[Rfam]
mir-276 microRNA precursor family: an 84-nucleotide sequence from Bombyx mori. It is one of the family's seed sequences. The base pairs follow the family's consensus structure, which was predicted with RNAalifold.
RNA sequence: CUGGUAAUUACCACUAGCGAGGUAUAGAGUUCCUACGUAUGCUAACACUGUAGGAACUUCAUACCGUGCUCUUGGGUUUGCCAA
Numbered sequence: 001c002u003g004g005u006a007a008u009u010a011c012c013a014c015u016a017g018c019g020a021g022g023u024a025u026a027g028a029g030u031u032c033c034u035a036c037g038u039a040u041g042c043u044a045a046c047a048c049u050g051u052a053g054g055a056a057c058u059u060c061a062u063a064c065c066g067u068g069c070u071c072u073u074g075g076g077u078u079u080g081c082c083a084a
Stems, first nucleotide, its partner, number of pairs: 011075003016070004021065005027059010